RNA: Small nucleolar RNA SNORA75
Organism: Mastacembelus armatus
RNA sequence: ACCUUCUCAUGAGCUCCUCUUAAUCUUACCCAUGAUUCUGUGUGGAUUCGCACGAGAAGCAGAGCUAAUGCACAGUUAGAAUGAGCUCACCCAGGUUUUAUGCGGGUGUUGCAUAUGUCAGCUGUGCAACAAAU
Number, nucleotide and partner (000 for none) at each position: 001a000002c000003c059004u058005u057006c056007u055008c054009a000010u000011g000012a000013g051014c050015u046016c045017c044018u000019c000020u000021u000022a037023a036024u035025c034026u000027u000028a000029c000030c000031c000032a000033u000034g025035a024036u023037u022038c000039u000040g000041u000042g000043u000044g017045g016046a015047u000048u000049c000050g014051c013052a000053c000054g008055a007056g006057a005058a004059g003060c000061a000062g000063a000064g000065c000066u000067a000068a000069u000070g127071c126072a125073c124074a123075g122076u000077u000078a000079g000080a000081a000082u000083g000084a000085g000086c000087u000088c108089a107090c106091c105092c104093a000094g000095g000096u000097u000098u000099u000100a000101u000102g000103c000104g092105g091106g090107u089108g088109u000110u000111g000112c000113a000114u000115a000116u000117g000118u000119c000120a000121g000122c075123u074124g073125u072126g071127c070128a000129a000130c000131a000132a000133a000134u000